[Rfam]
Overview:
Shown here is a 61-nucleotide sequence from Lentivirus humimdef1, a member of the family "Trans-activation response element (TAR)". By type it is a microRNA precursor. Its family is annotated with miRNA-mediated post-transcriptional gene silencing and RISC complex in the Gene Ontology. From the family's description: This family represents the HIV trans-activation response (TAR) element which is known to be required for the trans-activation of the viral promoter and for virus replication.
RNA sequence: GGGCUCCUCUGGUUAGACCAAAUCUGAGGCUGGGAGCUCUCUGGCUAGCUAGGGAACCCAC
Numbered sequence: 001g002g003g004c005u006c007c008u009c010u011g012g013u014u015a016g017a018c019c020a021a022a023u024c025u026g027a028g029g030c031u032g033g034g035a036g037c038u039c040u041c042u043g044g045c046u047a048g049c050u051a052g053g054g055a056a057c058c059c060a061c
Stems, first nucleotide, its partner, number of pairs: 001059003007054010018044003022040001026039003